The record is a 146-nucleotide sequence from Terrihalobacillus insolitus, which matches "FMN riboswitch aptamer (RFN element)" in Rfam. The match comes from Rfam's covariance-model search (116 bits).

[Rfam]
RNA sequence: AUAUUCCUUUGGGGCAGGGUGAAAUUCCCGACCGGCGGUGAUGGGUAGUGGUACCCUUAGUCCGUGACCCGUUACAGCAAAAGGUAACGGUGGAUUUGGUGAGAUUCCAAAGCCGACAGUUAAAGUCUGGAUGGGAAAAGGAAACG
Numbered sequence: 001a002u003a004u005u006c007c008u009u010u011g012g013g014g015c016a017g018g019g020u021g022a023a024a025u026u027c028c029c030g031a032c033c034g035g036c037g038g039u040g041a042u043g044g045g046u047a048g049u050g051g052u053a054c055c056c057u058u059a060g061u062c063c064g065u066g067a068c069c070c071g072u073u074a075c076a077g078c079a080a081a082a083g084g085u086a087a088c089g090g091u092g093g094a095u096u097u098g099g100u101g102a103g104a105u106u107c108c109a110a111a112g113c114c115g116a117c118a119g120u121u122a123a124a125g126u127c128u129g130g131a132u133g134g135g136a137a138a139a140g141g142a143a144a145c146g
Base pairs, nucleotide, nucleotide: 004143005142006141007140008139009138010137017029018028019027031126032125033115034114035065036064037063038062060113061112069090070089095111096110097109098108099107117129118128119127